[Rfam]
RNA sequence: UGUCUCCUCCACCCUCCUCCUUUGGUGUGGAUUUAACGCAGUCCGAUCGGACUGCGUUUUUUUUG
Number, nucleotide and partner (000 for none) at each position: 001u000002g000003u000004c000005u000006c000007c000008u031009c030010c029011a028012c027013c025014c024015u000016c000017c000018u000019c000020c000021u000022u000023u000024g014025g013026u000027g012028u011029g010030g009031a008032u000033u000034u000035a058036a057037c056038g055039c054040a053041g052042u051043c000044c000045g000046a000047u000048c000049g000050g000051a042052c041053u040054g039055c038056g037057u036058u035059u000060u000061u000062u000063u000064u000065g000
Shown here is a 65-nucleotide RNA from Thauera aminoaromatica, a member of the family "Betaproteobacteria toxic small RNA".
Overexpression in amino aid rich medium attenuates growth, suggesting role in repressing amino acid intake and metabolism.
The family has 51 seed sequences and 951 matches in Rfam 15.1.
The literature on the family includes a 2012 paper in Genome Res by Kimelman et al., "A vast collection of microbial genes that are toxic to bacteria".